[Rfam]
RNA: Bacterial small signal recognition particle RNA
RNA sequence: UGCUGGUCCCCCCGCAAUGAUAGAUUGUGAAUCCCGCCAGGCCCGGAAGGGAGCAACGGUAGCAGUUGAUUCGUGUGCCGGGGUGUGGCUAGCAGAG
Numbered sequence: 001u002g003c004u005g006g007u008c009c010c011c012c013c014g015c016a017a018u019g020a021u022a023g024a025u026u027g028u029g030a031a032u033c034c035c036g037c038c039a040g041g042c043c044c045g046g047a048a049g050g051g052a053g054c055a056a057c058g059g060u061a062g063c064a065g066u067u068g069a070u071u072c073g074u075g076u077g078c079c080g081g082g083g084u085g086u087g088g089c090u091a092g093c094a095g096a097g
Stems, first nucleotide, its partner, number of pairs: 004091005010083005015075001017074004023067006034059003042051003